[Rfam]
Shown here is a 220-nucleotide RNA from Thiopseudomonas alkaliphila, a member of the family "PhrS". The match comes from Rfam's covariance-model search (105 bits). On this family, see Livny et al., Nucleic Acids Res 2006: "Identification of 17 Pseudomonas aeruginosa sRNAs and prediction of sRNA-encoding genes in 10 diverse pathogens using the bioinformatic tool sRNAPredict2". Rfam links the family to the GO term quorum sensing. The organism belongs to Thiopseudomonas, within Bacteria.
RNA sequence: AUCUACUCAUAGCAAUCAACGACUCAUUGACUACGGAGUAGCCAAAUGUUCAUGGAUAUAGUGGUUUUCGCAGGUAUCGGCACUGUCCUACUGAUGAUUUCAUUUUUUGCUGGCCUUGCUUACUUUCUCUGGAAGAAUGAAACCGGUAAAGAGUAAGCAACGCUUCGCAUACUAGGCACGCAAGGCAAUUUGGCAGCUAACUUUAGCUGCCUUUUUUUAU
Numbered sequence: 001a002u003c004u005a006c007u008c009a010u011a012g013c014a015a016u017c018a019a020c021g022a023c024u025c026a027u028u029g030a031c032u033a034c035g036g037a038g039u040a041g042c043c044a045a046a047u048g049u050u051c052a053u054g055g056a057u058a059u060a061g062u063g064g065u066u067u068u069c070g071c072a073g074g075u076a077u078c079g080g081c082a083c084u085g086u087c088c089u090a091c092u093g094a095u096g097a098u099u100u101c102a103u104u105u106u107u108u109g110c111u112g113g114c115c116u117u118g119c120u121u122a123c124u125u126u127c128u129c130u131g132g133a134a135g136a137a138u139g140a141a142a143c144c145g146g147u148a149a150a151g152a153g154u155a156a157g158c159a160a161c162g163c164u165u166c167g168c169a170u171a172c173u174a175g176g177c178a179c180g181c182a183a184g185g186c187a188a189u190u191u192g193g194c195a196g197c198u199a200a201c202u203u204u205a206g207c208u209g210c211c212u213u214u215u216u217u218u219a220u
Stems, first nucleotide, its partner, number of pairs: 010112004061071003091096001176186002179184001192211008